[Rfam]
RNA sequence: CGUCUCCUCCAUGUCUCACCUGAUGUGGAUUCAGCCCGCCAAUGAGCGGGCUUUUUUCU
Numbered sequence: 001c002g003u004c005u006c007c008u009c010c011a012u013g014u015c016u017c018a019c020c021u022g023a024u025g026u027g028g029a030u031u032c033a034g035c036c037c038g039c040c041a042a043u044g045a046g047c048g049g050g051c052u053u054u055u056u057u058c059u
Stems, first nucleotide, its partner, number of pairs: 008029008033052007

The record is a 59-nucleotide RNA sequence from Burkholderia sp. H160, which matches "Betaproteobacteria toxic small RNA" in Rfam. A reference for the family is Kimelman et al. (2012), "A vast collection of microbial genes that are toxic to bacteria", Genome Res. Rfam 15.1 lists 951 matches to the family in 508 species. The source organism's lineage runs through Bacteria, Pseudomonadati, Betaproteobacteria, Burkholderiaceae and Burkholderia.